[Rfam]
RNA sequence: CAGCCACGGCGAACAACCGGGCGAGCCCGGCAACGGCUCGCCUGAGGAAACUUCCCCACGACACCGUGGGUCCCCGCGGGGCAACCCGCCGACCGAGAGGUCGCUGGGGAACAACGGCCCAAAUAGGGACCUGUGAUCUCCACGGGUGAGGUCCGGGUAGGGCCUUAGACGAAUAGUACAGAAGGGGAGUUAUGCCGUGGCUG
Numbered sequence: 001c002a003g004c005c006a007c008g009g010c011g012a013a014c015a016a017c018c019g020g021g022c023g024a025g026c027c028c029g030g031c032a033a034c035g036g037c038u039c040g041c042c043u044g045a046g047g048a049a050a051c052u053u054c055c056c057c058a059c060g061a062c063a064c065c066g067u068g069g070g071u072c073c074c075c076g077c078g079g080g081g082c083a084a085c086c087c088g089c090c091g092a093c094c095g096a097g098a099g100g101u102c103g104c105u106g107g108g109g110a111a112c113a114a115c116g117g118c119c120c121a122a123a124u125a126g127g128g129a130c131c132u133g134u135g136a137u138c139u140c141c142a143c144g145g146g147u148g149a150g151g152u153c154c155g156g157g158u159a160g161g162g163c164c165u166u167a168g169a170c171g172a173a174u175a176g177u178a179c180a181g182a183a184g185g186g187g188a189g190u191u192a193u194g195c196c197g198u199g200g201c202u203g
Stems, first nucleotide, its partner, number of pairs: 001203009018044005024038003028035002059116002069112001071110005076089005090103002119162002127154005138146001
About this RNA:
Rfam assigns this 203-nucleotide RNA sequence from Vulcanisaeta distributa to the family "RNaseP truncated form". It is one of the family's seed sequences. Pyrobaculum and Caldivirga RNase P RNAs are reported as the smallest naturally occurring form of RNase P. They function as trans-acting precursor tRNA-processing ribozymes. This variant of RNase P, have a loss of the specificity domain, which suggests altered substrate specificity. NCBI's taxonomy places the organism under Archaea, Thermoproteati, Thermoproteota, Thermoproteales, Vulcanisaeta distributa. The literature on the family includes a 2010 paper in Proc Natl Acad Sci U S A by Lai et al., "Discovery of a minimal form of RNase P in Pyrobaculum". The base pairs follow the family's consensus structure.